[Rfam]
RNA sequence: GUUUUAUUAAUGAUGGUGUUUCUCUAAACCUAAGUGGAGAAAUAUCUGAUGUCAGGAAAAGU
Numbered sequence: 001g002u003u004u005u006a007u008u009a010a011u012g013a014u015g016g017u018g019u020u021u022c023u024c025u026a027a028a029c030c031u032a033a034g035u036g037g038a039g040a041a042a043u044a045u046c047u048g049a050u051g052u053c054a055g056g057a058a059a060a061g062u
Stems, first nucleotide, its partner, number of pairs: 001062005015046010029036001

Shown here is a 62-nucleotide RNA sequence from Chrysochloris asiatica, a member of the family "Selenocysteine insertion sequence 1".
For this family Rfam cites "A novel RNA structural motif in the selenocysteine insertion element of eukaryotic selenoprotein mRNAs" (Walczak et al., RNA, 1996).
Taxonomically the source falls in Chrysochloris (Eukaryota, Vertebrata, Eutheria, Afrotheria).
The incorporation of selenocysteine into a protein sequence is directed by an in-frame UGA codon (usually a stop codon) within the coding region of the mRNA. Selenoprotein mRNAs contain a conserved secondary structure in the 3' UTR that is required for the distinction of UGA stop from UGA selenocysteine.